[Rfam]
RNA sequence: GCCAGGAAGAGGAAGAAUGAGAUGGCCUGAGAGCGGUGGGAAUGGGAACAUGGAGGAAAGCCUAAAUUGUUUGGAUUCUCCUCCAACAAUGAAGGUUGAACUUGGUUUCGGCUUUCCCAAUGCCUCCCAUUCCUAUUACUCUCGAGCACUCCUUCCUCUUCUUUUUGCUU
Numbered sequence: 001g002c003c004a005g006g007a008a009g010a011g012g013a014a015g016a017a018u019g020a021g022a023u024g025g026c027c028u029g030a031g032a033g034c035g036g037u038g039g040g041a042a043u044g045g046g047a048a049c050a051u052g053g054a055g056g057a058a059a060g061c062c063u064a065a066a067u068u069g070u071u072u073g074g075a076u077u078c079u080c081c082u083c084c085a086a087c088a089a090u091g092a093a094g095g096u097u098g099a100a101c102u103u104g105g106u107u108u109c110g111g112c113u114u115u116c117c118c119a120a121u122g123c124c125u126c127c128c129a130u131u132c133c134u135a136u137u138a139c140u141c142u143c144g145a146g147c148a149c150u151c152c153u154u155c156c157u158c159u160u161c162u163u164u165u166u167g168c169u170u
Base pairs, nucleotide, nucleotide: 009161010160011159012158013157015155016154017153021151022150026146028144029143030142031141032140033139035137037135038134039133040132041131042130043129044128045127046126047125049122050121051120053118055117056116057115058114059113060112061111
RNA: MIR2118 microRNA precursor family